[Rfam]
RNA sequence: AAGACCUUUUAACAAUAGUCCUGUGAGGCUAGAAAAGGAAUCGUGAAUCAUAGACAAGUGUAUUCAUUAUAAAAUGGAUAAGUCUAUCGAAGUGAAUCCUUUACCUCAUGGUAAAAGGAUUUUUUCGUU
Number, nucleotide and partner (000 for none) at each position: 001a000002a000003g000004a000005c038006c037007u036008u035009u034010u000011a000012a000013c000014a000015a000016u031017a030018g029019u028020c027021c000022u000023g000024u000025g000026a000027g020028g019029c018030u017031a016032g000033a000034a009035a008036a007037g006038g005039a000040a000041u000042c000043g000044u000045g000046a000047a000048u000049c000050a000051u000052a000053g000054a000055c000056a000057a085058g084059u000060g000061u080062a079063u078064u077065c076066a075067u074068u073069a000070u000071a000072a000073a068074a067075u066076g065077g064078a063079u062080a061081a000082g000083u000084c058085u057086a000087u000088c000089g000090a000091a000092g124093u000094g122095a121096a120097u119098c118099c117100u116101u115102u113103a112104c111105c110106u000107c000108a000109u000110g105111g104112u103113a102114a000115a101116a100117g099118g098119a097120u096121u095122u094123u000124u092125u000126c000127g000128u000129u000
PyrR binding site: a 129-nucleotide RNA from Bacilli bacterium VT-13-104.
A reference for the family is Bonner et al. (2001), "Molecular recognition of pyr mRNA by the Bacillus subtilis attenuation regulatory protein PyrR", Nucleic Acids Res.
Lineage of the source: Bacteria > Bacillati > Bacillota > Bacilli.